[Rfam]
RNA sequence: UAGUAGUUUGAAGGAUCGAGAGAUGAAGGACGAGGAGCUGGAGGAAGUUCUGAAAAAAGGGUGCAAGAGGUCCAGUGGACCUCUGCACUGCGCGGACCGAAGCGGAGCGUAGAAGAGGAAUGUUGCGUAAGGAUAAUAACCCAUGAGGGGCGAGAGGUUCGUCCUAAUCCUCACAAGGCAAACAGAGGAGACAGUAUCUUGAUAAGAGGUGCGUCGUGAACACAACAGAGUGGCUGGGCGGGAACUCCCGGAAGUGAGCACACUUCUAUGUACACGGGGCGAUAUGGGUGUCGAGAAGACAGGCGUGUACCUACA
Numbered sequence: 001u002a003g004u005a006g007u008u009u010g011a012a013g014g015a016u017c018g019a020g021a022g023a024u025g026a027a028g029g030a031c032g033a034g035g036a037g038c039u040g041g042a043g044g045a046a047g048u049u050c051u052g053a054a055a056a057a058a059g060g061g062u063g064c065a066a067g068a069g070g071u072c073c074a075g076u077g078g079a080c081c082u083c084u085g086c087a088c089u090g091c092g093c094g095g096a097c098c099g100a101a102g103c104g105g106a107g108c109g110u111a112g113a114a115g116a117g118g119a120a121u122g123u124u125g126c127g128u129a130a131g132g133a134u135a136a137u138a139a140c141c142c143a144u145g146a147g148g149g150g151c152g153a154g155a156g157g158u159u160c161g162u163c164c165u166a167a168u169c170c171u172c173a174c175a176a177g178g179c180a181a182a183c184a185g186a187g188g189a190g191a192c193a194g195u196a197u198c199u200u201g202a203u204a205a206g207a208g209g210u211g212c213g214u215c216g217u218g219a220a221c222a223c224a225a226c227a228g229a230g231u232g233g234c235u236g237g238g239c240g241g242g243a244a245c246u247c248c249c250g251g252a253a254g255u256g257a258g259c260a261c262a263c264u265u266c267u268a269u270g271u272a273c274a275c276g277g278g279g280c281g282a283u284a285u286g287g288g289u290g291u292c293g294a295g296a297a298g299a300c301a302g303g304c305g306u307g308u309a310c311c312u313a314c315a
Base pairs, nucleotide, nucleotide: 006031007030008029009028015024016023017022142218143217144216147165148164149163150162151161152160153159168189169188170187171186172185190215191214192213194212195211197209198208199207200206221232222231223230251266252265253264254263255262256261270310271309272308273307274306275305276304289301290300291299292298
The record is a 315-nucleotide RNA, which matches "Clostridiales-3 RNA" in Rfam. It is one of the family's seed sequences. The base pairs follow the family's consensus structure, which is taken from published work.